RNA sequence: GGAUCGGGCGAGGCGUCUGGGGCGACGCGUCAGGAAUUGAUCUCCGUCGGACUUCCCGAUUGCACUACGGGCCCGGCCCCCACCGUGUUCGUG
Number, nucleotide and partner (000 for none) at each position: 001g043002g042003a041004u040005c039006g000007g000008g000009c000010g031011a030012g000013g028014c027015g026016u025017c024018u000019g000020g000021g000022g000023c000024g017025a016026c015027g014028c013029g000030u011031c010032a000033g000034g000035a000036a000037u000038u000039g005040a004041u003042c002043u001044c000045c000046g000047u000048c000049g000050g000051a000052c000053u000054u000055c000056c000057c000058g000059a000060u000061u000062g000063c000064a000065c000066u093067a092068c091069g090070g000071g088072c087073c000074c085075g084076g000077c000078c000079c000080c000081c000082a000083c000084c075085g074086u000087g072088u071089u000090c069091g068092u067093g066